[Rfam]
RNA sequence: UUUCCUGUUUAUUUGCAGCUGUAGUUAGUCUCUUAGUGAUAGUCACAGUUAUACACAUGGGAUAAAACAAUAUUGGGCCAUUGCAAAUUGAGGGUGAAGUAUUUCAUCUCUUCUGCAUGAUCUAGACAUUG
Numbered sequence: 001u002u003u004c005c006u007g008u009u010u011a012u013u014u015g016c017a018g019c020u021g022u023a024g025u026u027a028g029u030c031u032c033u034u035a036g037u038g039a040u041a042g043u044c045a046c047a048g049u050u051a052u053a054c055a056c057a058u059g060g061g062a063u064a065a066a067a068c069a070a071u072a073u074u075g076g077g078c079c080a081u082u083g084c085a086a087a088u089u090g091a092g093g094g095u096g097a098a099g100u101a102u103u104u105c106a107u108c109u110c111u112u113c114u115g116c117a118u119g120a121u122c123u124a125g126a127c128a129u130u131g
Stems, first nucleotide, its partner, number of pairs: 003062006018049005024043001026041002029039002073125005079119002082117004090110003094107005

Record summary:
The record is a 131-nucleotide RNA from Jaculus jaculus, which matches "Small nucleolar RNA SNORA20" in Rfam. The source organism's lineage runs through Eukaryota, Craniata, Theria, Glires and Jaculus. The match comes from Rfam's covariance-model search (99 bits). About the family: ACA20 is a member of the H/ACA class of snoRNA that guide the sites of modification of uridines to pseudouridines. Rfam links the family to the GO terms nucleolus and RNA processing.